RNA sequence: AUAUCAAAUAGAGGCGCGGUUUACCGGGUAGCAGCAAAUGAUAAGGAACAUUAUUUCCAAGGUUGUCUGUGAAGGGGUGGAUCGCCGAAAGACCGGAUCUGUAAUGGGAGAAGGACUUGGGGCAAAGGCGGACAGCUUUUGCACUGUCAUGUGAAAACGUGGGGCGCUAUUCAUCAG
Numbered sequence: 001a002u003a004u005c006a007a008a009u010a011g012a013g014g015c016g017c018g019g020u021u022u023a024c025c026g027g028g029u030a031g032c033a034g035c036a037a038a039u040g041a042u043a044a045g046g047a048a049c050a051u052u053a054u055u056u057c058c059a060a061g062g063u064u065g066u067c068u069g070u071g072a073a074g075g076g077g078u079g080g081a082u083c084g085c086c087g088a089a090a091g092a093c094c095g096g097a098u099c100u101g102u103a104a105u106g107g108g109a110g111a112a113g114g115a116c117u118u119g120g121g122g123c124a125a126a127g128g129c130g131g132a133c134a135g136c137u138u139u140u141g142c143a144c145u146g147u148c149a150u151g152u153g154a155a156a157a158c159g160u161g162g163g164g165c166g167c168u169a170u171u172c173a174u175c176a177g
Base pairs, nucleotide, nucleotide: 007171008170009169010168011167016085017084018083019082020081021080022079023078024077034070035069036068038066039065040064041063089118090117091116093114094113098109099108100107119145120144122142123141124140125139126138127137128136129135147162148161149160150159151158152157
The family of this 177-nucleotide sequence from Roseburia sp. CAG:50 is "Lysine riboswitch aptamer". It scores 67 bits against the family's covariance model. From the family's description: Riboswitches are metabolite binding domains within certain messenger RNAs that serve as precision sensors for their corresponding targets.